[Rfam]
RNA sequence: UGUGCCGCAAGGCGGACUUAUGCUGUACCCACAGCGUAGCUCAUAGAACGGGCAUAGGACUACUUUAAAAGGAGAAAACAAAUG
Number, nucleotide and partner (000 for none) at each position: 001u016002g000003u014004g013005c012006c011007g000008c000009a000010a000011g006012g005013c004014g003015g000016a001017c000018u000019u038020a037021u036022g035023c034024u033025g032026u000027a000028c000029c000030c000031a000032c025033a024034g023035c022036g021037u020038a019039g053040c052041u051042c050043a000044u000045a000046g000047a000048a000049c000050g042051g041052g040053c039054a000055u000056a000057g000058g000059a000060c000061u000062a000063c000064u000065u000066u000067a000068a000069a000070a000071g000072g000073a000074g000075a000076a000077a000078a000079c000080a000081a000082a000083u000084g000

freshwater-2 RNA: an 84-nucleotide RNA sequence. The family's RNA type in Rfam is cis-regulatory element.